malK-I RNA: a 183-nucleotide sequence. The family's RNA type in Rfam is cis-regulatory element.
RNA sequence: AUUCCACGGCCCCUGCCACUCCACAAACAUGGCAGGCAAGCUGUGAAAAAAAGGAGGAUAAAAAAGGCCUUGACUCAGGCUGCGGCAGUGUGGAGACCUGUCGCAACGCGGACUCUUCCAGCGCGGAGAGCCGUGAGUGCACAUCAAGCGGAGGCUGUGUGCACGGAGUCGGAAAACAUGGCA
Numbered sequence: 001a002u003u004c005c006a007c008g009g010c011c012c013c014u015g016c017c018a019c020u021c022c023a024c025a026a027a028c029a030u031g032g033c034a035g036g037c038a039a040g041c042u043g044u045g046a047a048a049a050a051a052a053g054g055a056g057g058a059u060a061a062a063a064a065a066g067g068c069c070u071u072g073a074c075u076c077a078g079g080c081u082g083c084g085g086c087a088g089u090g091u092g093g094a095g096a097c098c099u100g101u102c103g104c105a106a107c108g109c110g111g112a113c114u115c116u117u118c119c120a121g122c123g124c125g126g127a128g129a130g131c132c133g134u135g136a137g138u139g140c141a142c143a144u145c146a147a148g149c150g151g152a153g154g155c156u157g158u159g160u161g162c163a164c165g166g167a168g169u170c171g172g173a174a175a176a177c178a179u180g181g182c183a
Base pairs, nucleotide, nucleotide: 006042012036013035014034015033016032017031018030067080068079069078070077071171072170073169074168075167076166081105082104083103084102085101086100087099088098090097091096108134109133110132111131113130114129115128116127137164138163139162140161141160142159143158144157147156148155149154